[Rfam]
RNA: Bacterial RNase P class A
Organism: Sphingopyxis panaciterrulae
RNA sequence: CCAGAGGGUCGGGCGAUCGCCGCUUCGCGCAAGCGAGGGGGAGGAAAGUCCGGGCUCCACGGAAACCACGGUGCCGGAUAACGUCCGGCGGCUUCGGGCAACCGGAGUCAGGGAAAGUGCCACAGAGAGCAGACCGCCAACGGCUUCGGCCCGGCGAAAGGUGAAAGGGUGCGGUAAGAGCGCACCGCGCGGACGGCAACGGACGCGGCAUGGCAAACCCCACCGGGAGCAAGGUCGAAUAGGGAUGGCACGGGUUCGAUCCCAGGGCUGGUUCCGGCCCCGCCGUCCGGGUUGACUGCUUGAGCGUCCGGGCAACCGGCCGCCUAGAGGAAUGAUCGCCCAUCCCCUGAAAAGGGGUGGACAGAACCCGGCUUACAGACCCUCUGGCGCU
Numbered sequence: 001c002c003a004g005a006g007g008g009u010c011g012g013g014c015g016a017u018c019g020c021c022g023c024u025u026c027g028c029g030c031a032a033g034c035g036a037g038g039g040g041g042a043g044g045a046a047a048g049u050c051c052g053g054g055c056u057c058c059a060c061g062g063a064a065a066c067c068a069c070g071g072u073g074c075c076g077g078a079u080a081a082c083g084u085c086c087g088g089c090g091g092c093u094u095c096g097g098g099c100a101a102c103c104g105g106a107g108u109c110a111g112g113g114a115a116a117g118u119g120c121c122a123c124a125g126a127g128a129g130c131a132g133a134c135c136g137c138c139a140a141c142g143g144c145u146u147c148g149g150c151c152c153g154g155c156g157a158a159a160g161g162u163g164a165a166a167g168g169g170u171g172c173g174g175u176a177a178g179a180g181c182g183c184a185c186c187g188c189g190c191g192g193a194c195g196g197c198a199a200c201g202g203a204c205g206c207g208g209c210a211u212g213g214c215a216a217a218c219c220c221c222a223c224c225g226g227g228a229g230c231a232a233g234g235u236c237g238a239a240u241a242g243g244g245a246u247g248g249c250a251c252g253g254g255u256u257c258g259a260u261c262c263c264a265g266g267g268c269u270g271g272u273u274c275c276g277g278c279c280c281c282g283c284c285g286u287c288c289g290g291g292u293u294g295a296c297u298g299c300u301u302g303a304g305c306g307u308c309c310g311g312g313c314a315a316c317c318g319g320c321c322g323c324c325u326a327g328a329g330g331a332a333u334g335a336u337c338g339c340c341c342a343u344c345c346c347c348u349g350a351a352a353a354g355g356g357g358u359g360g361a362c363a364g365a366a367c368c369c370g371g372c373u374u375a376c377a378g379a380c381c382c383u384c385u386g387g388c389g390c391u
Base pairs, nucleotide, nucleotide: 001387002386003385004384005383006382007381008380009379010378011376012340013339014338015337016336017335018334020041021040023038024037025036026035027034028033046374047373048372050371051370052369053368054367055229056228057227058226065273067271069225070224071223072222073221074088075087076086077085078084089111090109091108092107093106094105095104096103097102112220113219117218118217119214120213121212134160136155137154138153142151143150144149168186169185170184171183172182173181187209188207189206190205191204194201195200233297234296235295236294243288244287245286246285247284248283265280266279267278268277269276304323305322306321308319309318310317311316